[Rfam]
RNA sequence: AGAUGGGGUAGAGGUCGCGAUUGUUAUUAGUAUCCUAUUGGAGAUUCAGUGAAAUCUAUGAAAAUAGGAAAAAGGAUCCAUCGCCGAAGCUUCUGAAAUCACGUCUUUCAGAAAGCUGGGUCUGUACUCGAAUAGGGGCAGAACUGUCACAGUUCCUUGGAAUUGUGGAGAACUAUCUUCACC
Numbered sequence: 001a002g003a004u005g006g007g008g009u010a011g012a013g014g015u016c017g018c019g020a021u022u023g024u025u026a027u028u029a030g031u032a033u034c035c036u037a038u039u040g041g042a043g044a045u046u047c048a049g050u051g052a053a054a055u056c057u058a059u060g061a062a063a064a065u066a067g068g069a070a071a072a073a074g075g076a077u078c079c080a081u082c083g084c085c086g087a088a089g090c091u092u093c094u095g096a097a098a099u100c101a102c103g104u105c106u107u108u109c110a111g112a113a114a115g116c117u118g119g120g121u122c123u124g125u126a127c128u129c130g131a132a133u134a135g136g137g138g139c140a141g142a143a144c145u146g147u148c149a150c151a152g153u154u155c156c157u158u159g160g161a162a163u164u165g166u167g168g169a170g171a172a173c174u175a176u177c178u179u180c181a182c183c
Base pairs, nucleotide, nucleotide: 006178007177008176009175010174011173017084018083019082020081021080023078025076033069034068035067036066037065038064039063088117089116090115091113092112093111094110095109096108097107098106118145119144121142122141123140124139125138127136128135147168148167149166150165151164152163153162
A member of the RNA family "Lysine riboswitch aptamer", 183 nucleotides long. Rfam describes the family as follows. Riboswitches are metabolite binding domains within certain messenger RNAs that serve as precision sensors for their corresponding targets. Allosteric rearrangement of mRNA structure is mediated by ligand binding, and this results in modulation of gene expression. This family includes riboswitches that sense lysine in a number of genes involved in lysine metabolism, including lysC. It scores 125 bits against the family's covariance model.